[Rfam]
RNA sequence: CCCACACCCAUGUGUGUAGGACUUCAAAGGAUCAUCUUAAAAUUUAGAACAGAUCUCUAGAAAAGUUAUCACAUGGGUGUGGGACUUGAUUGUUUUAGAUAUUUGUUCCAAAUUUAAUGGUGAUCAUUUGGGGUCCUACACACAUGGGUGUGGG
Numbered sequence: 001c002c003c004a005c006a007c008c009c010a011u012g013u014g015u016g017u018a019g020g021a022c023u024u025c026a027a028a029g030g031a032u033c034a035u036c037u038u039a040a041a042a043u044u045u046a047g048a049a050c051a052g053a054u055c056u057c058u059a060g061a062a063a064a065g066u067u068a069u070c071a072c073a074u075g076g077g078u079g080u081g082g083g084a085c086u087u088g089a090u091u092g093u094u095u096u097a098g099a100u101a102u103u104u105g106u107u108c109c110a111a112a113u114u115u116a117a118u119g120g121u122g123a124u125c126a127u128u129u130g131g132g133g134u135c136c137u138a139c140a141c142a143c144a145u146g147g148g149u150g151u152g153g154g
Base pairs, nucleotide, nucleotide: 002153003152004151005150006149007148008147009146010145011144012143013142015140016139017138018137019136020135021134022133023132024131025130026129027128028127030125031124032123034121035120036119038117040115041114042113043112044111045110047108048107049106050105051104052103053102054101056099057098058097059096060095061094062093064091065090066089067088068087069082070081071080072079073078

Shown here is a 154-nucleotide sequence from Amborella trichopoda, a member of the family "MIR8565 microRNA precursor family". A search with the family's covariance model found it, with a score of 139 bits. Rfam links the family to the GO terms miRNA-mediated post-transcriptional gene silencing and RISC complex. NCBI's taxonomy places the organism under Eukaryota, Spermatophyta, Magnoliopsida, Amborellales, Amborella. The base pairs follow the family's consensus structure, which was predicted with RNAalifold.